[Rfam]
RNA sequence: UUAUAAGCAAAAAUUACUUUUUAGAUUCAUUGAACAACUGGUGUAUUUAGCCUAUAUCUAAGCUAGAUACAUCGGUUGUUCAAUGAAUCUAAAAAGUAACUUUUGCUUAUAA
Number, nucleotide and partner (000 for none) at each position: 001u000002u111003a110004u109005a108006a107007g106008c000009a104010a103011a102012a101013a000014u099015u098016a097017c096018u095019u094020u093021u092022u091023a090024g089025a000026u087027u086028c085029a084030u083031u082032g081033a080034a079035c078036a077037a076038c075039u074040g073041g072042u071043g070044u000045a000046u000047u000048u065049a064050g063051c062052c000053u000054a000055u000056a000057u000058c000059u000060a000061a000062g051063c050064u049065a048066g000067a000068u000069a000070c043071a042072u041073c040074g039075g038076u037077u036078g035079u034080u033081c032082a031083a030084u029085g028086a027087a026088u000089c024090u023091a022092a021093a020094a019095a018096g017097u016098a015099a014100c000101u012102u011103u010104u009105g000106c007107u006108u005109a004110u003111a002112a000
RNA: MIR2593 microRNA precursor family